[Rfam]
RNA sequence: CUUCAUAUAUAUUCCAUUUGUGUUCCAUGUGUUUAUAUAAAUGAACUACGUGGGUCAAAAAAUGGAUAAAGAAAAUUAAGGAGAUAUAUUACUUUAUUUCAUUUUUUGUUGUUUUAUUAAUACAUAAAAAAAAAUAGUAUAUUUCUUCAACAACAUAUAA
Numbered sequence: 001c002u003u004c005a006u007a008u009a010u011a012u013u014c015c016a017u018u019u020g021u022g023u024u025c026c027a028u029g030u031g032u033u034u035a036u037a038u039a040a041a042u043g044a045a046c047u048a049c050g051u052g053g054g055u056c057a058a059a060a061a062a063u064g065g066a067u068a069a070a071g072a073a074a075a076u077u078a079a080g081g082a083g084a085u086a087u088a089u090u091a092c093u094u095u096a097u098u099u100c101a102u103u104u105u106u107u108g109u110u111g112u113u114u115u116a117u118u119a120a121u122a123c124a125u126a127a128a129a130a131a132a133a134a135u136a137g138u139a140u141a142u143u144u145c146u147u148c149a150a151c152a153a154c155a156u157a158u159a160a
Base pairs, nucleotide, nucleotide: 013066014065015064016063017062018061019060021057022056024054025053026052027051028050029049030048031046032045033044080146081145082144083143084142085141086140087139088138089137090136091135100111101110113128114127115126116125117124